[Rfam]
RNA sequence: AGAUGUGAGGGUGAUCUGGCUAUGACAUCUGUCAUCCUAUUGACCACCAGGGGUGAUUUGGCUGAUCUGGGUGGCUAGGCAGGUAUCUCCUUCCUCUCUCACUGCUCCAUAUGCAUCCCUUUCAAAGCAGCAUGCUUGAUUGAAGAAGAUGACCUGCCCUGCUAGAGAUGUACCAUUCAUAGGUAUACGGUAGCUGCACUCCCCUGCUAGAACCUCCAAACAAGCUCGAGGUUCAUUUGUAGGAGAAUGUAGAGUAGUCAAGCUUCCAGGACUGUGGACACACCCUUAUGAAGCACUGCAUGGGGCAGUGCCUGAAGGA
Numbered sequence: 001a002g003a004u005g006u007g008a009g010g011g012u013g014a015u016c017u018g019g020c021u022a023u024g025a026c027a028u029c030u031g032u033c034a035u036c037c038u039a040u041u042g043a044c045c046a047c048c049a050g051g052g053g054u055g056a057u058u059u060g061g062c063u064g065a066u067c068u069g070g071g072u073g074g075c076u077a078g079g080c081a082g083g084u085a086u087c088u089c090c091u092u093c094c095u096c097u098c099u100c101a102c103u104g105c106u107c108c109a110u111a112u113g114c115a116u117c118c119c120u121u122u123c124a125a126a127g128c129a130g131c132a133u134g135c136u137u138g139a140u141u142g143a144a145g146a147a148g149a150u151g152a153c154c155u156g157c158c159c160u161g162c163u164a165g166a167g168a169u170g171u172a173c174c175a176u177u178c179a180u181a182g183g184u185a186u187a188c189g190g191u192a193g194c195u196g197c198a199c200u201c202c203c204c205u206g207c208u209a210g211a212a213c214c215u216c217c218a219a220a221c222a223a224g225c226u227c228g229a230g231g232u233u234c235a236u237u238u239g240u241a242g243g244a245g246a247a248u249g250u251a252g253a254g255u256a257g258u259c260a261a262g263c264u265u266c267c268a269g270g271a272c273u274g275u276g277g278a279c280a281c282a283c284c285c286u287u288a289u290g291a292a293g294c295a296c297u298g299c300a301u302g303g304g305g306c307a308g309u310g311c312c313u314g315a316a317g318g319a
Stems, first nucleotide, its partner, number of pairs: 002107002005102007013093002018090002024087002027084007035074002037070003042067002045064001047061002117170001119167003122139004127135002141161002148157001193263003199257002202254001204252004214245004220240005286319002291313001293311007

Rfam assigns this 319-nucleotide RNA from Chrysolophus pictus to the family "7SK RNA". 7SK was discovered as an abundant small nuclear RNA in the mid-70s but a possible function has only recently been suggested. Two independent studies have found that 7SK RNA binds the CDK9/cyclin T complex (known as elongation factor P-TEFb). P-TEFb activates transcription by phosphorylating the C-terminal domain of RNA polymerase II. This process is negatively regulated by the 7SK RNP. The secondary structure of 7SK RNA shown here was proposed by Wasserman and Steitz on the basis of chemical modification and enzymatic cleavage experiments. This family contains a number of annotated pseudogenes and 7SK derived repeats. By type it is a non-coding RNA gene. Lineage of the source: Eukaryota > Metazoa > Amniota > Galloanserae > Chrysolophus.